Shown here is a 54-nucleotide RNA from Nocardioides sp. J9, a member of the family "L17-Actino-Proteobacteria ribosomal protein leader".
Lineage of the source: Bacteria > Actinomycetota > Actinomycetes > Nocardioidaceae > Nocardioides.
Pairs were carried over by alignment from the consensus structure, which is taken from published work.
Rfam classes the family as a cis-regulatory leader.

RNA sequence: GGACCGGGCAAUCGCCCGGUUCCCACCUCCGGUACCUGACACGGCCGGACCUAG
Numbered sequence: 001g002g003a004c005c006g007g008g009c010a011a012u013c014g015c016c017c018g019g020u021u022c023c024c025a026c027c028u029c030c031g032g033u034a035c036c037u038g039a040c041a042c043g044g045c046c047g048g049a050c051c052u053a054g
Stems, first nucleotide, its partner, number of pairs: 001022009027054002029048005